[Rfam]
The family of this 182-nucleotide RNA from Planococcus halotolerans is "Lysine riboswitch aptamer". The family's consensus secondary structure is taken from published work. Lineage of the source: Bacteria > Bacilli > Caryophanales > Caryophanaceae > Planococcus.
RNA sequence: UCGAUGGGUAGAGGCUGCAAAACCGAUCAGUAAAAUAUGUGAGCGUGACAGCGAUGAUCAUAUUUGAAAGGCGGUUUUGCCGAAGUCCAUUUUCCGUUGUCACCGGGAAGUGAGGCUGGGGGCAUCCUUAAUAGGGAUGCCACUGUCAUUUAUGCUUGCAUAAAUGGAGAGCUACAGGGUUG
Numbered sequence: 001u002c003g004a005u006g007g008g009u010a011g012a013g014g015c016u017g018c019a020a021a022a023c024c025g026a027u028c029a030g031u032a033a034a035a036u037a038u039g040u041g042a043g044c045g046u047g048a049c050a051g052c053g054a055u056g057a058u059c060a061u062a063u064u065u066g067a068a069a070g071g072c073g074g075u076u077u078u079g080c081c082g083a084a085g086u087c088c089a090u091u092u093u094c095c096g097u098u099g100u101c102a103c104c105g106g107g108a109a110g111u112g113a114g115g116c117u118g119g120g121g122g123c124a125u126c127c128u129u130a131a132u133a134g135g136g137a138u139g140c141c142a143c144u145g146u147c148a149u150u151u152a153u154g155c156u157u158g159c160a161u162a163a164a165u166g167g168a169g170a171g172c173u174a175c176a177g178g179g180u181u182g
Stems, first nucleotide, its partner, number of pairs: 008175004017080009033065007084117004088112008118144002121141008146167007
It scores 121 bits against the family's covariance model.